[Rfam]
RNA: c-di-AMP riboswitch aptamer (ydaO/yuaA leader)
Organism: Bacillus smithii
RNA sequence: CAUCUUUUAUCGCUUAAUUCAUGAUGAUGAAGCGGGGGAAACCAAUCGCGGCCUUAUGGGCUGCAUGGGGUGAAUCCUAAUAUUUAGGAGGGGUGACUCUUUCCACCCUAAUCCGUCAGCUAACCUCGUAGGCGUUUGAAAAGAGGAGAU
Numbered sequence: 001c002a003u004c005u006u007u008u009a010u011c012g013c014u015u016a017a018u019u020c021a022u023g024a025u026g027a028u029g030a031a032g033c034g035g036g037g038g039a040a041a042c043c044a045a046u047c048g049c050g051g052c053c054u055u056a057u058g059g060g061c062u063g064c065a066u067g068g069g070g071u072g073a074a075u076c077c078u079a080a081u082a083u084u085u086a087g088g089a090g091g092g093g094u095g096a097c098u099c100u101u102u103c104c105a106c107c108c109u110a111a112u113c114c115g116u117c118a119g120c121u122a123a124c125c126u127c128g129u130a131g132g133c134g135u136u137u138g139a140a141a142a143g144a145g146g147a148g149a150u
Base pairs, nucleotide, nucleotide: 011134012133013132014131018031019030020029032129033128034127035126036125037124043067044066068114069113070112076088077087078086079085091108092107093106094105
Dot-bracket structure: ..........((((...(((........)))((((((.....((.....................))(((.....((((.....))))..((((..........))))...))).........)))))).))))................